[Rfam]
RNA sequence: UACACUAAAGUUUUAUGAUAGAAAGAUUGAAGAGAAUUCAAGAAUAUUCAAGAUAAAAGAUAGAUAAUAAUAUGAGAUUGUAAAAAAUAAAUAAAGAGAGGGAAAAUUAUGGUGGCCACGAUUGGACUCGAACCAACGACCACUACCA
Numbered sequence: 001u002a003c004a005c006u007a008a009a010g011u012u013u014u015a016u017g018a019u020a021g022a023a024a025g026a027u028u029g030a031a032g033a034g035a036a037u038u039c040a041a042g043a044a045u046a047u048u049c050a051a052g053a054u055a056a057a058a059g060a061u062a063g064a065u066a067a068u069a070a071u072a073u074g075a076g077a078u079u080g081u082a083a084a085a086a087a088u089a090a091a092u093a094a095a096g097a098g099a100g101g102g103a104a105a106a107u108u109a110u111g112g113u114g115g116c117c118a119c120g121a122u123u124g125g126a127c128u129c130g131a132a133c134c135a136a137c138g139a140c141c142a143c144u145a146c147c148a
Base pairs, nucleotide, nucleotide: 021039022038023037058073110145111144112143113142114141115140119138120137122136123135124134125133

Shown here is a 148-nucleotide sequence from Helicobacter cholecystus, a member of the family "Bacterial antisense RNA HPnc0260". The family's consensus secondary structure was predicted with CMfinder. For this family Rfam cites "The primary transcriptome of the major human pathogen Helicobacter pylori" (Sharma et al., Nature, 2010).